RNA sequence: GGAUAUUUGAGAGGAGCUAUCCUUAGUACGAGAGGACCGGGAUGGACGCACCACUGGUGUACCAGUUGUCUUGCCAAAGGCACAGCUGGGUAGCUAUGUGCGGUUAAGAUAAGUGCUGAAGGCAUCUAAGCACGAAGCCAACCUCAAGAUAAGAUAUCCCAUACGCAAGUAGUAAGACCCCAUUAAGAACAAGUGGUAGAUAGGCAAGGAGUGGAAGUGCAGUAAUGUAUGUAGCUGACUUGUACUAAUAGGUCGAGGA
Numbered sequence: 001g002g003a004u005a006u007u008u009g010a011g012a013g014g015a016g017c018u019a020u021c022c023u024u025a026g027u028a029c030g031a032g033a034g035g036a037c038c039g040g041g042a043u044g045g046a047c048g049c050a051c052c053a054c055u056g057g058u059g060u061a062c063c064a065g066u067u068g069u070c071u072u073g074c075c076a077a078a079g080g081c082a083c084a085g086c087u088g089g090g091u092a093g094c095u096a097u098g099u100g101c102g103g104u105u106a107a108g109a110u111a112a113g114u115g116c117u118g119a120a121g122g123c124a125u126c127u128a129a130g131c132a133c134g135a136a137g138c139c140a141a142c143c144u145c146a147a148g149a150u151a152a153g154a155u156a157u158c159c160c161a162u163a164c165g166c167a168a169g170u171a172g173u174a175a176g177a178c179c180c181c182a183u184u185a186a187g188a189a190c191a192a193g194u195g196g197u198a199g200a201u202a203g204g205c206a207a208g209g210a211g212u213g214g215a216a217g218u219g220c221a222g223u224a225a226u227g228u229a230u231g232u233a234g235c236u237g238a239c240u241u242g243u244a245c246u247a248a249u250a251g252g253u254c255g256a257g258g259a
Stems, first nucleotide, its partner, number of pairs: 001159008011145004017045007047102005055096003062089005067082006108138001113133005162171003173256001176254004180196005201247003204243005210236002217230005